[Rfam]
RNA: ZMP/ZTP riboswitch aptamer (pfl RNA motif)
RNA sequence: ACAAAACGCAGUAACUGACGAGAUUUUCGUGGAAGUAACCACAAGGAAGCUGCUGUUUUUAACCUAAAAAAAGCCGUUCGUCUGGGCAAAGGUG
Numbered sequence: 001a002c003a004a005a006a007c008g009c010a011g012u013a014a015c016u017g018a019c020g021a022g023a024u025u026u027u028c029g030u031g032g033a034a035g036u037a038a039c040c041a042c043a044a045g046g047a048a049g050c051u052g053c054u055g056u057u058u059u060u061a062a063c064c065u066a067a068a069a070a071a072a073g074c075c076g077u078u079c080g081u082c083u084g085g086g087c088a089a090a091g092g093u094g
Stems, first nucleotide, its partner, number of pairs: 003058003008053005015046002017082005029042004073087003